This 108-nucleotide RNA sequence from Muricoccus nepalensis belongs to the Rfam family "SAM-I/IV (S-adenosyl methionine) riboswitch aptamer". The family is grouped with related families in Rfam's "SAM clan". The organism belongs to Muricoccus, within Bacteria.
RNA sequence: GCAUCACAUCAAGAGUUGGGUAGACGCCCGACGCCAAUCCACCUGCCCAGGCAAGGUGGCGCUUCCGCGAGGGGGGAUGUGGCCAGACCGGCAACCAAACGGGUCACA
Numbered sequence: 001g002c003a004u005c006a007c008a009u010c011a012a013g014a015g016u017u018g019g020g021u022a023g024a025c026g027c028c029c030g031a032c033g034c035c036a037a038u039c040c041a042c043c044u045g046c047c048c049a050g051g052c053a054a055g056g057u058g059g060c061g062c063u064u065c066c067g068c069g070a071g072g073g074g075g076g077a078u079g080u081g082g083c084c085a086g087a088c089c090g091g092c093a094a095c096c097a098a099a100c101g102g103g104u105c106a107c108a
Stems, first nucleotide, its partner, number of pairs: 006080005015032001017031001018029004033060003038056002042051002045104004082092003

The family's consensus secondary structure is taken from published work.